[Rfam]
RNA sequence: CCCCGGCAGGCCGAGGUGUCCUACAGAAAAACCUCGGGUCCCACCUGCCGGG
Numbered sequence: 001c002c003c004c005g006g007c008a009g010g011c012c013g014a015g016g017u018g019u020c021c022u023a024c025a026g027a028a029a030a031a032c033c034u035c036g037g038g039u040c041c042c043a044c045c046u047g048c049c050g051g052g
Stems, first nucleotide, its partner, number of pairs: 001052003006048005011037007018024002

Rfam assigns this 52-nucleotide RNA sequence from Apteryx owenii to the family "MAT2A 3'UTR stem loop E". The literature on the family includes a 2011 paper in Genome Res by Parker et al., "New families of human regulatory RNA structures identified by comparative analysis of vertebrate genomes". The family's consensus secondary structure is taken from published work. The match comes from Rfam's covariance-model search (55 bits). Taxonomically the source falls in Apteryx (Eukaryota, Deuterostomia, Dipnotetrapodomorpha, Archelosauria). The family has 28 seed sequences and 337 matches in Rfam 15.1. Rfam classes the family as a cis-regulatory element.